[Rfam]
RNA sequence: GAAUUUCGCCGGGAUCGACCUCCUCCCCGACCCGGCGAAUACGGUCAGCCUCUCCUCCUCCCAAUGGCUGACCACCAAAACGACGCCCGCCGAACCUCCUCCCUCGGCGGGCGUUGUUA
Numbered sequence: 001g002a003a004u005u006u007c008g009c010c011g012g013g014a015u016c017g018a019c020c021u022c023c024u025c026c027c028c029g030a031c032c033c034g035g036c037g038a039a040u041a042c043g044g045u046c047a048g049c050c051u052c053u054c055c056u057c058c059u060c061c062c063a064a065u066g067g068c069u070g071a072c073c074a075c076c077a078a079a080a081c082g083a084c085g086c087c088c089g090c091c092g093a094a095c096c097u098c099c100u101c102c103c104u105c106g107g108c109g110g111g112c113g114u115u116g117u118u119a
Stems, first nucleotide, its partner, number of pairs: 006038008015029001043073008083114011